Rfam assigns this 111-nucleotide RNA from Amycolatopsis sp. YIM 10 to the family "Glycine riboswitch aptamer". Gene Ontology term of the family: glycine biosynthetic process.

[Rfam]
RNA sequence: CCUCUGGAAAGCGGGUCGGCGGCCACUCACCGCACGACCCCGCCGAAGGUGCAAGCCCGUGGACUCGCGGGUGAACCUCUCAGGCGCCCGGAAAACGGGCAGGGACAGAGG
Number, nucleotide and partner (000 for none) at each position: 001c111002c110003u109004c108005u107006g106007g000008a000009a000010a000011g000012c000013g040014g039015g038016u037017c036018g035019g000020c000021g000022g000023c000024c000025a000026c000027u000028c000029a000030c000031c000032g000033c000034a000035c018036g017037a016038c015039c014040c013041c000042g085043c084044c083045g081046a080047a000048g000049g079050u000051g077052c000053a000054a000055g072056c071057c070058c069059g068060u067061g066062g000063a000064c000065u000066c061067g060068c059069g058070g057071g056072u055073g000074a000075a000076c000077c051078u000079c049080u046081c045082a000083g044084g043085c042086g000087c000088c000089c000090g000091g000092a000093a000094a000095a000096c000097g000098g000099g000100c000101a000102g000103g000104g000105a000106c006107a005108g004109a003110g002111g001
Annotation:
Lineage of the source: Bacteria > Actinomycetota > Actinomycetes > Pseudonocardiales > Amycolatopsis. About the family: This family represents the bacterial glycine riboswitch.